[Rfam]
RNA sequence: UGAAUUCCUCUCACUGCUUGGAGCCUUAGGUAGUGGGAUUUUAGUCCAUCAUAUACGUAAACAGAUGUCUUCACUCAGGGCACCAAGGGGAUGGGUUGGCUGUCCAUUAGUAUCUUCUGAUUUUUGCGGAGUCAGUUACAA
Numbered sequence: 001u002g003a004a005u006u007c008c009u010c011u012c013a014c015u016g017c018u019u020g021g022a023g024c025c026u027u028a029g030g031u032a033g034u035g036g037g038a039u040u041u042u043a044g045u046c047c048a049u050c051a052u053a054u055a056c057g058u059a060a061a062c063a064g065a066u067g068u069c070u071u072c073a074c075u076c077a078g079g080g081c082a083c084c085a086a087g088g089g090g091a092u093g094g095g096u097u098g099g100c101u102g103u104c105c106a107u108u109a110g111u112a113u114c115u116u117c118u119g120a121u122u123u124u125u126g127c128g129g130a131g132u133c134a135g136u137u138a139c140a141a
Base pairs, nucleotide, nucleotide: 001048002047004045005044009038010037011036012035013034015032016031017030018029064133065132066131068129069128075120076119077118078117079116080113082111083110089105090104091103092102093101

A member of the RNA family "Small nucleolar RNA SNORA79" from Suricata suricatta, 141 nucleotides long. The literature on the family includes a 2006 paper in RNA by Schattner et al., "A computational screen for mammalian pseudouridylation guide H/ACA RNAs". The base pairs follow the family's consensus structure, which was predicted with RNAalifold. A search with the family's covariance model found it, with a score of 61 bits. Rfam links the family to the GO terms RNA processing and nucleolus. ACA65 (SNORA79) is a member of the H/ACA class of snoRNAs that guide the sites of modification of uridines to pseudouridines. This snoRNA was identified by computational screening and its expression in mouse experimentally verified by Northern blot and primer extension analysis.